A member of the RNA family "c-di-AMP riboswitch aptamer (ydaO/yuaA leader)" from Actinacidiphila rubida, 157 nucleotides long. Rfam's curators write: This family represents a conserved RNA structure found upstream of the ydaO and yuaA genes in Bacillus subtilis and related genes in other bacteria. Lineage of the source: Bacteria > Bacillati > Actinomycetota > Actinomycetes > Actinacidiphila. It scores 63 bits against the family's covariance model.

[Rfam]
RNA sequence: AACCCUCGAGCACCCAUACGGCAGGAGCGGGGGACCCACGGUAAGCCGCCGUCCGCGCACGACCCGGACGGCUCGGGGUGAAGUCACGCACGUGUGUGACCGGGCAUCUCCUGCCCGAACCCGACAGCUCACCUCGCAGGCGGAGGAGAAGGAACUC
Numbered sequence: 001a002a003c004c005c006u007c008g009a010g011c012a013c014c015c016a017u018a019c020g021g022c023a024g025g026a027g028c029g030g031g032g033g034a035c036c037c038a039c040g041g042u043a044a045g046c047c048g049c050c051g052u053c054c055g056c057g058c059a060c061g062a063c064c065c066g067g068a069c070g071g072c073u074c075g076g077g078g079u080g081a082a083g084u085c086a087c088g089c090a091c092g093u094g095u096g097u098g099a100c101c102g103g104g105c106a107u108c109u110c111c112u113g114c115c116c117g118a119a120c121c122c123g124a125c126a127g128c129u130c131a132c133c134u135c136g137c138a139g140g141c142g143g144a145g146g147a148g149a150a151g152g153a154a155c156u157c
Stems, first nucleotide, its partner, number of pairs: 004025002027137006037075001076122003084099004102116004